[Rfam]
Iron response element I: a 35-nucleotide RNA from Pipistrellus kuhlii. Rfam links the family to the GO term response to iron ion. By type it is a cis-regulatory element. The organism belongs to Pipistrellus, within Eukaryota. It scores 37 bits against the family's covariance model.
RNA sequence: CUGUCUCUUGCUUCAGCAGUGCUUGCACAGAACAG
Numbered sequence: 001c002u003g004u005c006u007c008u009u010g011c012u013u014c015a016g017c018a019g020u021g022c023u024u025g026c027a028c029a030g031a032a033c034a035g
Stems, first nucleotide, its partner, number of pairs: 001035004006031003010028001012027001014025003017021001